Bacterial RNase P class A: a 339-nucleotide RNA sequence from Flavobacterium micromati. The family's RNA type in Rfam is ribozyme. The source organism's lineage runs through Bacteria, Pseudomonadati, Flavobacteriia, Flavobacteriaceae and Flavobacterium. Rfam describes the family as follows. Ribonuclease P (RNase P) is a ubiquitous endoribonuclease, found in archaea, bacteria and eukarya as well as chloroplasts and mitochondria.

RNA sequence: GCCGCAGACCGCCUUAUCGUUCUUGUCCCAUUGGGCGAGAGAGGAAAGUCCGGACACCAUAGGGAAGCAUAGCGGGUAACACCCGUCGGUUUAUUUUGAAUUUUUUCAAAAUGGAUUAGGACAAGUGCAACAGAAAGUAUGUACAGGUAAUGCUGUAGUGAAACCAGGUAAACUCUAUGCGGUGAAAUAUCAAGUAUAUCAGCAUUUAAGGGCUUCUCGUCCGUUGUUGAAGGGUAGAUAGCUUGAGUCACACAGUAAUGUGCGAUCUAGAUAAAUGAUAAGGUGACACUGAAUUUAUUUCAGCGUUAACAGAAUCCGGCUUAUAGGUCUGUAUUUUUU
Numbered sequence: 001g002c003c004g005c006a007g008a009c010c011g012c013c014u015u016a017u018c019g020u021u022c023u024u025g026u027c028c029c030a031u032u033g034g035g036c037g038a039g040a041g042a043g044g045a046a047a048g049u050c051c052g053g054a055c056a057c058c059a060u061a062g063g064g065a066a067g068c069a070u071a072g073c074g075g076g077u078a079a080c081a082c083c084c085g086u087c088g089g090u091u092u093a094u095u096u097u098g099a100a101u102u103u104u105u106u107c108a109a110a111a112u113g114g115a116u117u118a119g120g121a122c123a124a125g126u127g128c129a130a131c132a133g134a135a136a137g138u139a140u141g142u143a144c145a146g147g148u149a150a151u152g153c154u155g156u157a158g159u160g161a162a163a164c165c166a167g168g169u170a171a172a173c174u175c176u177a178u179g180c181g182g183u184g185a186a187a188u189a190u191c192a193a194g195u196a197u198a199u200c201a202g203c204a205u206u207u208a209a210g211g212g213c214u215u216c217u218c219g220u221c222c223g224u225u226g227u228u229g230a231a232g233g234g235u236a237g238a239u240a241g242c243u244u245g246a247g248u249c250a251c252a253c254a255g256u257a258a259u260g261u262g263c264g265a266u267c268u269a270g271a272u273a274a275a276u277g278a279u280a281a282g283g284u285g286a287c288a289c290u291g292a293a294u295u296u297a298u299u300u301c302a303g304c305g306u307u308a309a310c311a312g313a314a315u316c317c318g319g320c321u322u323a324u325a326g327g328u329c330u331g332u333a334u335u336u337u338u339u
Base pairs, nucleotide, nucleotide: 001335004332005331006330007329008328009327010326011324012283013282014281015280016279017278018277020041021040022039023038024037025036026035027034028033046322047321048320050319051318052317053316054315055184056183057182058181062218063217064216065215067180068179069178070177071176072086073085074084075083076082087119088117089116090115091114092113093112094111095110096109097108098107099106100105120175121174125173126172127169128168142157143156144155145154146153188240189239190238191237199230200229201228202227203226210222211221212220213219247266248265249264251262252261253260254259